[Rfam]
Background: A member of the RNA family "PAGEV RNA", 243 nucleotides long.
RNA sequence: UUCCCGACGCUUGGAAUCAAGAUGCUUUGGGCUCGGGGAAGUAAUAGCUGCCGAUCAAGGGGAUCUCUUCACGGCAGCCGGUAUAGCCGGUUAGUGCGACCCGCAAGGGCGAGAAGGCAAUGGCAGGGCAGCGUAAAAAACCCAACCACGGGCGCUGUCACUGUCCUAAAACCCACCAACCGCCAGACGCCGAAGAGGGCAGGGGGCGCAGCGGUAAACAAUCCCCGAAAGUCUGGAACGCCU
Number, nucleotide and partner (000 for none) at each position: 001u039002u038003c037004c036005c035006g034007a033008c000009g000010c000011u000012u000013g000014g000015a000016a000017u000018c000019a000020a000021g000022a000023u000024g000025c000026u000027u000028u000029g000030g000031g000032c000033u007034c006035g005036g004037g003038g002039a001040a000041g000042u000043a000044a000045u000046a000047g078048c077049u076050g075051c074052c073053g000054a000055u000056c000057a000058a000059g000060g000061g000062g000063a000064u000065c000066u196067c195068u194069u193070c192071a000072c000073g052074g051075c050076a049077g048078c047079c000080g000081g000082u000083a000084u000085a000086g000087c000088c182089g181090g180091u179092u178093a000094g176095u175096g174097c000098g000099a000100c000101c000102c000103g000104c000105a000106a000107g000108g000109g000110c000111g000112a000113g000114a000115a000116g000117g000118c000119a000120a000121u000122g165123g164124c163125a000126g000127g159128g158129c157130a156131g155132c154133g153134u152135a000136a000137a000138a000139a000140a000141c000142c000143c000144a000145a000146c000147c000148a000149c000150g000151g000152g134153c133154g132155c131156u130157g129158u128159c127160a000161c000162u000163g124164u123165c122166c000167u000168a000169a000170a000171a000172c000173c000174c096175a095176c094177c000178a092179a091180c090181c089182g088183c236184c235185a234186g233187a232188c231189g000190c000191c000192g070193a069194a068195g067196a066197g000198g000199g000200c000201a000202g226203g225204g224205g223206g222207c000208g000209c000210a000211g000212c000213g000214g000215u000216a000217a000218a000219c000220a000221a000222u206223c205224c204225c203226c202227g000228a000229a000230a000231g188232u187233c186234u185235g184236g183237a000238a000239c000240g000241c000242c000243u000